[Rfam]
Record summary:
L31-Firmicutes ribosomal protein leader: a 32-nucleotide sequence. On this family, see Eckert and Weinberg, BMC Microbiol 2020: "Discovery of 20 novel ribosomal leader candidates in bacteria and archaea". It is one of the family's seed sequences. Its Rfam clan is "Ribosomal Protein L31 Leader clan".
RNA sequence: CUAUACCAAAGAAUUUGGUAUGGCGAAAGGAG
Dot-bracket structure: ((((((((((...)))))))))).........